[Rfam]
A member of the RNA family "Iron response element I" from Myotis lucifugus, 35 nucleotides long. Gene Ontology term of the family: response to iron ion. The family's RNA type in Rfam is cis-regulatory element. A reference for the family is Hentze et al. (1987), "Identification of the iron-responsive element for the translational regulation of human ferritin mRNA", Science. It scores 37 bits against the family's covariance model.
RNA sequence: AUGUCUCCUGCUUCAACAGGGUUUGGACGGAACAG
Numbered sequence: 001a002u003g004u005c006u007c008c009u010g011c012u013u014c015a016a017c018a019g020g021g022u023u024u025g026g027a028c029g030g031a032a033c034a035g
Stems, first nucleotide, its partner, number of pairs: 002034003006031003010028001012027005017021001